[Rfam]
RNA sequence: UGGGCAGUCAGGCUCCUGGCUGAAUCCAGGACUUAUCUGGUCCUGGGUAUACCCAAAGCCCAACUGUAUG
Numbered sequence: 001u002g003g004g005c006a007g008u009c010a011g012g013c014u015c016c017u018g019g020c021u022g023a024a025u026c027c028a029g030g031a032c033u034u035a036u037c038u039g040g041u042c043c044u045g046g047g048u049a050u051a052c053c054c055a056a057a058g059c060c061c062a063a064c065u066g067u068a069u070g
Stems, first nucleotide, its partner, number of pairs: 007064002011060004017055003021051002023048001026040005
RNA: mir-344 microRNA precursor family